[Rfam]
RNA sequence: GUCUCGACACCGCCGAAUCGUCGACAUCACGAGCCUCAACGAACCGGGGACCCGGGCACUAUGGGGUGAAUCCGCGGGUGAGCGGUAGGGCGUAUCUCUUCCCGCCCGAACCCGUCAGCUAACCCGGUAGGCGGGCUGAAGGAAGAAGGA
Numbered sequence: 001g002u003c004u005c006g007a008c009a010c011c012g013c014c015g016a017a018u019c020g021u022c023g024a025c026a027u028c029a030c031g032a033g034c035c036u037c038a039a040c041g042a043a044c045c046g047g048g049g050a051c052c053c054g055g056g057c058a059c060u061a062u063g064g065g066g067u068g069a070a071u072c073c074g075c076g077g078g079u080g081a082g083c084g085g086u087a088g089g090g091c092g093u094a095u096c097u098c099u100u101c102c103c104g105c106c107c108g109a110a111c112c113c114g115u116c117a118g119c120u121a122a123c124c125c126g127g128u129a130g131g132c133g134g135g136c137u138g139a140a141g142g143a144a145g146a147a148g149g150a
Stems, first nucleotide, its partner, number of pairs: 011133004018042003043128006053063002064113003072085004088107004
RNA: c-di-AMP riboswitch aptamer (ydaO/yuaA leader)